Bacterial RNase P class A: a 319-nucleotide sequence from Halomarinibacterium sedimenti. Rfam describes the family as follows. Ribonuclease P (RNase P) is a ubiquitous endoribonuclease, found in archaea, bacteria and eukarya as well as chloroplasts and mitochondria. Its best characterised activity is the generation of mature 5'-ends of tRNAs by cleaving the 5'-leader elements of precursor-tRNAs. Cellular RNase Ps are ribonucleoproteins. RNA from bacterial RNase Ps retains its catalytic activity in the absence of the protein subunit, i.e. it is a ribozyme. Isolated eukaryotic and archaeal RNase P RNA has not been shown to retain its catalytic function, but is still essential for the catalytic activity of the holoenzyme. Although the archaeal and eukaryotic holoenzyme s have a much greater protein content than the bacterial ones, the RNA cores from all the three lineages are homologous -- helices corresponding to P1, P2, P3, P4, and P10/11 are common to all cellular RNase P RNAs. Yet, there is considerable sequence variation, particularly among the eukaryotic RNAs. Identified in Yersinia as Ysr151/RnpB. Lineage of the source: Bacteria > Pseudomonadati > Bacteroidota > Flavobacteriia > Halomarinibacterium.

RNA sequence: AACGCAGGCCGCCUUAUCGCUCCCGUGUAAAUGCAGGAGAGGAAAGUCCGGACACUAAAGGGAAGCAUAGCGGCUAACGGCCGUCGUUCUGCCUUGGCAGAAUAGGACUAGUGCAACAGAAAGAAUGUACAGGUAAUGCUGUAGUGAAAUCAUGUAAACUCUAUGCGGUGAAAUGUCACGUAAACCUACGCUUGAGGGUUCCCGCCCGAUGUAGGAGGGUAGGCAGAUGGAUCCCACUAGUAAUGGUGGGGCCAGAUAAAUGAUAGGGGUCGCGUCAUUAGGCGAGAUACAGAAUCCGGCUUAUAGGCCUGCUUUUUUU
Numbered sequence: 001a002a003c004g005c006a007g008g009c010c011g012c013c014u015u016a017u018c019g020c021u022c023c024c025g026u027g028u029a030a031a032u033g034c035a036g037g038a039g040a041g042g043a044a045a046g047u048c049c050g051g052a053c054a055c056u057a058a059a060g061g062g063a064a065g066c067a068u069a070g071c072g073g074c075u076a077a078c079g080g081c082c083g084u085c086g087u088u089c090u091g092c093c094u095u096g097g098c099a100g101a102a103u104a105g106g107a108c109u110a111g112u113g114c115a116a117c118a119g120a121a122a123g124a125a126u127g128u129a130c131a132g133g134u135a136a137u138g139c140u141g142u143a144g145u146g147a148a149a150u151c152a153u154g155u156a157a158a159c160u161c162u163a164u165g166c167g168g169u170g171a172a173a174u175g176u177c178a179c180g181u182a183a184a185c186c187u188a189c190g191c192u193u194g195a196g197g198g199u200u201c202c203c204g205c206c207c208g209a210u211g212u213a214g215g216a217g218g219g220u221a222g223g224c225a226g227a228u229g230g231a232u233c234c235c236a237c238u239a240g241u242a243a244u245g246g247u248g249g250g251g252c253c254a255g256a257u258a259a260a261u262g263a264u265a266g267g268g269g270u271c272g273c274g275u276c277a278u279u280a281g282g283c284g285a286g287a288u289a290c291a292g293a294a295u296c297c298g299g300c301u302u303a304u305a306g307g308c309c310u311g312c313u314u315u316u317u318u319u
Base pairs, nucleotide, nucleotide: 001315002314004312005311006310007309008308009307010306011304012268013267014266015265016264017263018262020039021038022037023036025034026033027032044302045301046300048299049298050297051296052295053170054169055168056167060203061202062201063200065166066165067164068163069162070084071083072082073081074080085105086103087102088101089100090099091098092097106161107160111159112158113155114154115153128143129142130141131140132139174225175224176223177222185215186214187213188212189211196207197206198205199204232251233250234249235248236247237246238245239244